[Rfam]
RNA sequence: UGGACCCAUGAGGAGAGAAAGUGUUUACGAACAAAAGAUGGUGAUUAAUCCUGUUCUGCGCAAAGUACUGAGGUCCAUU
Number, nucleotide and partner (000 for none) at each position: 001u077002g076003g075004a074005c073006c072007c000008a000009u000010g000011a000012g000013g000014a000015g000016a000017g000018a000019a000020a000021g000022u000023g000024u000025u000026u000027a000028c000029g000030a000031a000032c000033a000034a000035a000036a000037g000038a000039u000040g000041g000042u000043g000044a000045u000046u000047a000048a000049u000050c000051c000052u000053g000054u000055u000056c000057u000058g000059c000060g000061c000062a000063a000064a000065g000066u000067a000068c000069u000070g000071a000072g006073g005074u004075c003076c002077a001078u000079u000
RNA: Small nucleolar RNA SNORD112
Organism: Equus caballus